Overview
Bacillaceae-1 RNA: a 68-nucleotide RNA sequence from Lentibacillus populi. A search with the family's covariance model found it, with a score of 67 bits. By type it is a small RNA.
RNA sequence: GAUAGGGGAUCUUCGACUAAGUACCGACACGUCCUGUGUCGAACGUCGAAGUCACCACAUCCUGUGGG
Numbered sequence: 001g002a003u004a005g006g007g008g009a010u011c012u013u014c015g016a017c018u019a020a021g022u023a024c025c026g027a028c029a030c031g032u033c034c035u036g037u038g039u040c041g042a043a044c045g046u047c048g049a050a051g052u053c054a055c056c057a058c059a060u061c062c063u064g065u066g067g068g
Stems, first nucleotide, its partner, number of pairs: 011051007026040005055067004